[Rfam]
RNA: ZMP/ZTP riboswitch aptamer (pfl RNA motif)
RNA sequence: UCUCCUCGUCGUGACUGGCGUGCAGAUGGGACACCAUCGGGGAACGACACCGUAUCUGAAUUGGCCGCUCGCCUGGGUCGUAUUU
Numbered sequence: 001u002c003u004c005c006u007c008g009u010c011g012u013g014a015c016u017g018g019c020g021u022g023c024a025g026a027u028g029g030g031a032c033a034c035c036a037u038c039g040g041g042g043a044a045c046g047a048c049a050c051c052g053u054a055u056c057u058g059a060a061u062u063g064g065c066c067g068c069u070c071g072c073c074u075g076g077g078u079c080g081u082a083u084u085u
Stems, first nucleotide, its partner, number of pairs: 004052001008048005015041002017073004026037004062080005